[Rfam]
Record summary:
Shown here is a 132-nucleotide RNA from Molossus molossus, a member of the family "U11 spliceosomal RNA". The family's consensus secondary structure is taken from published work. Rfam classes the family as a spliceosomal small nuclear RNA. It scores 86 bits against the family's covariance model.
RNA sequence: AAAAAAGGCUUCUGUUGUGAGUGGCACAUGUAGGGCAGCUUGAUUGCUCUACCUGCAGGAUCGACAUCAGGGUUUCGGAAGCAGAAUAUUUUGGUGUCUGGGCAGCUGGUGAUCGUUGGUUCUGGCGCCUGU
Numbered sequence: 001a002a003a004a005a006a007g008g009c010u011u012c013u014g015u016u017g018u019g020a021g022u023g024g025c026a027c028a029u030g031u032a033g034g035g036c037a038g039c040u041u042g043a044u045u046g047c048u049c050u051a052c053c054u055g056c057a058g059g060a061u062c063g064a065c066a067u068c069a070g071g072g073u074u075u076c077g078g079a080a081g082c083a084g085a086a087u088a089u090u091u092u093g094g095u096g097u098c099u100g101g102g103c104a105g106c107u108g109g110u111g112a113u114c115g116u117u118g119g120u121u122c123u124g125g126c127g128c129c130u131g132u
Stems, first nucleotide, its partner, number of pairs: 008082005013026005027055002030052009056077001058075005100130004105126005111121004